Pseudomon-1/ErsA RNA: a 116-nucleotide RNA sequence from Pseudomonas sp. TTU2014-080ASC. Rfam links the family to the GO terms positive regulation of translation, ncRNA-mediated, mRNA binding and response to antibiotic. For this family Rfam cites "Comparative profiling of Pseudomonas aeruginosa strains reveals differential expression of novel unique and conserved small RNAs" (Ferrara et al., PLoS One, 2012).
RNA sequence: AUGCUCCUUUGUUGUGUUAAGUGUUGGCAGACAUCUGAACCCCGCCCUAGCGGUUCAGAUUAUUAAACUCCGAAUCUCCCUCCCCAUAAGAGGUUCGGAGUUUUUUUUUACCUUCA
Numbered sequence: 001a002u003g004c005u006c007c008u009u010u011g012u013u014g015u016g017u018u019a020a021g022u023g024u025u026g027g028c029a030g031a032c033a034u035c036u037g038a039a040c041c042c043c044g045c046c047c048u049a050g051c052g053g054u055u056c057a058g059a060u061u062a063u064u065a066a067a068c069u070c071c072g073a074a075u076c077u078c079c080c081u082c083c084c085c086a087u088a089a090g091a092g093g094u095u096c097g098g099a100g101u102u103u104u105u106u107u108u109u110a111c112c113u114u115c116a
Stems, first nucleotide, its partner, number of pairs: 034059008065104003068100011